[Rfam]
Record summary:
small nucleolar RNA snoR143: a 168-nucleotide RNA sequence from Solanum lycopersicum. NCBI's taxonomy places the organism under Eukaryota, Tracheophyta, Gunneridae, Solanales, Solanum subgen. Lycopersicon. The family's RNA type in Rfam is H/ACA-box small nucleolar RNA. The family has 3 seed sequences and 660 matches in Rfam 15.1. On this family, see Chen and Wu, Nucleic Acids Res 2009: "Mining small RNA sequencing data: a new approach to identify small nucleolar RNAs in Arabidopsis". It scores 81 bits against the family's covariance model.

RNA sequence: UUGCACUUUGCAAUCAUAUAAGCUUCGCUAAAUUCUCAAAUUAGUGGUCUUACAGUGUUAGUGCGUAUAGGAAAAGCUGAAGUUAUCAGCGGCAGCCAGACAUCUGUUGAGAUGAAUCCACAGAUGCGUUCUGUUUAUGCUCCUGUCUACUAAUUUCAUCUCACAUUU
Numbered sequence: 001u002u003g004c005a006c007u008u009u010g011c012a013a014u015c016a017u018a019u020a021a022g023c024u025u026c027g028c029u030a031a032a033u034u035c036u037c038a039a040a041u042u043a044g045u046g047g048u049c050u051u052a053c054a055g056u057g058u059u060a061g062u063g064c065g066u067a068u069a070g071g072a073a074a075a076g077c078u079g080a081a082g083u084u085a086u087c088a089g090c091g092g093c094a095g096c097c098a099g100a101c102a103u104c105u106g107u108u109g110a111g112a113u114g115a116a117u118c119c120a121c122a123g124a125u126g127c128g129u130u131c132u133g134u135u136u137a138u139g140c141u142c143c144u145g146u147c148u149a150c151u152a153a154u155u156u157c158a159u160c161u162c163a164c165a166u167u168u
Base pairs, nucleotide, nucleotide: 002065003064004063005062006061009057010056011055017054019052020051021050022049024047026046027045028044029043030042031041109162110161111160112159113158114157115156116155128143